RNA sequence: CUACACUUGUGCUGAAUGGAUUCUAUGUAUAGUGUAGCACAAGAAGACACUAUACACGU
Numbered sequence: 001c002u003a004c005a006c007u008u009g010u011g012c013u014g015a016a017u018g019g020a021u022u023c024u025a026u027g028u029a030u031a032g033u034g035u036a037g038c039a040c041a042a043g044a045a046g047a048c049a050c051u052a053u054a055c056a057c058g059u
Stems, first nucleotide, its partner, number of pairs: 007042006028054008
Record summary:
Rfam assigns this 59-nucleotide sequence from Betacoronavirus hipposideri to the family "Coronavirus 3' UTR pseudoknot". Pairs were carried over by alignment from the consensus structure, which is taken from published work. Rfam links the family to the GO term viral genome replication. Its Rfam clan is "Coronavirus 3' UTR". About the family: Coronaviruses are plus-strand RNA viruses with ~30kb genomes. The 3' UTR region of coronavirus genomes contains a conserved ~55nt pseudoknot structure which has been shown to be necessary for viral genome replication. The mechanism of cis-regulation is unclear, but this element is postulated to function in the plus-strand.